RNA sequence: GAUCAAUGAUGAAAAUAGCCAAAUCUGAGCAUCUGAAGGUCUCCUAGUCUACCUGAUGUAUGAUCUCUGUAGUUCUGAGA
Numbered sequence: 001g002a003u004c005a006a007u008g009a010u011g012a013a014a015a016u017a018g019c020c021a022a023a024u025c026u027g028a029g030c031a032u033c034u035g036a037a038g039g040u041c042u043c044c045u046a047g048u049c050u051a052c053c054u055g056a057u058g059u060a061u062g063a064u065c066u067c068u069g070u071a072g073u074u075c076u077g078a079g080a
Stems, first nucleotide, its partner, number of pairs: 029059005037050004
RNA: Small nucleolar RNA U2-19
Organism: Capra hircus